The family of this 136-nucleotide RNA from Mycobacterium lacus is "Group II catalytic intron D1-D4-4". Rfam's curators write: Group II introns are found in rRNA, tRNA and mRNA of organelles in fungi, plants and protists, and also in mRNA in bacteria.
RNA sequence: UUGCCGGUGAGAGUCCGGUCCGGAUAAUGACCAAGCAGCCCGGUAGCUGGUGGCCGGCGGAAAGGGAGACCCCACCGUCGAAGUGUCAUGACAAAGCCGCUUUGGGCGGCGAGCAAGCAACCCGUCCGUACGAUGA
Numbered sequence: 001u002u003g004c005c006g007g008u009g010a011g012a013g014u015c016c017g018g019u020c021c022g023g024a025u026a027a028u029g030a031c032c033a034a035g036c037a038g039c040c041c042g043g044u045a046g047c048u049g050g051u052g053g054c055c056g057g058c059g060g061a062a063a064g065g066g067a068g069a070c071c072c073c074a075c076c077g078u079c080g081a082a083g084u085g086u087c088a089u090g091a092c093a094a095a096g097c098c099g100c101u102u103u104g105g106g107c108g109g110c111g112a113g114c115a116a117g118c119a120a121c122c123c124g125u126c127c128g129u130a131c132g133a134u135g136a
Base pairs, nucleotide, nucleotide: 020043021042022041023040050089051088052087053086054085055080056079057078058077059076060075064071065070096110097109098108099107100106113129114128